[Rfam]
RNA sequence: ACAGUACAAACUGAGCAGGCGAUGAACAUAGGAUUUAUGUUGUUGUGUUCGUGGGGCCGGGCCACUCUUUGGUGGCAGCAGAUGAAUAUUAUUUAAUUAUUAACAUCUGUGGGACAGUA
Dot-bracket structure: .........((((..(.(((.((((((((((...........))))))))))...)))..(((((......))))).((((((.....................))))))..).)))).
Numbered sequence: 001a002c003a004g005u006a007c008a009a010a011c012u013g014a015g016c017a018g019g020c021g022a023u024g025a026a027c028a029u030a031g032g033a034u035u036u037a038u039g040u041u042g043u044u045g046u047g048u049u050c051g052u053g054g055g056g057c058c059g060g061g062c063c064a065c066u067c068u069u070u071g072g073u074g075g076c077a078g079c080a081g082a083u084g085a086a087u088a089u090u091a092u093u094u095a096a097u098u099a100u101u102a103a104c105a106u107c108u109g110u111g112g113g114a115c116a117g118u119a
Stems, first nucleotide, its partner, number of pairs: 010118004016113001018058003022052010061076005078110006